[Rfam]
RNA sequence: AGUAACUUUUAAUUCGAUCCCGUGAGGUCGGCAAAGUGAAGGCUCGUUUAUUUGGGUGUGUUCUGCCCAGAUAAAGGCGUCCCUUCACGUAGGUGAAGAGACGCCUUUUCU
Dot-bracket structure: ..(.(((((....((((((......)))))).))))).)........((((((((((.......))))))))))(((((((.((((((....)))))).))))))).....

The family of this 111-nucleotide RNA sequence from Exiguobacterium chiriqhucha is "PyrR binding site". For this family Rfam cites "Molecular recognition of pyr mRNA by the Bacillus subtilis attenuation regulatory protein PyrR" (Bonner et al., Nucleic Acids Res, 2001). The family's RNA type in Rfam is cis-regulatory element. The match comes from Rfam's covariance-model search (57 bits). Gene Ontology terms of the family: pyrimidine nucleobase transport and pyrimidine nucleobase biosynthetic process. From the family's description: This family represents the PyrR binding site and terminator structure. This RNA structure is found upstream of a variety of genes involved in pyrimidine biosynthesis and transport. Taxonomically the source falls in Exiguobacterium chiriqhucha (Bacteria, Bacillota, Bacilli, Exiguobacterium).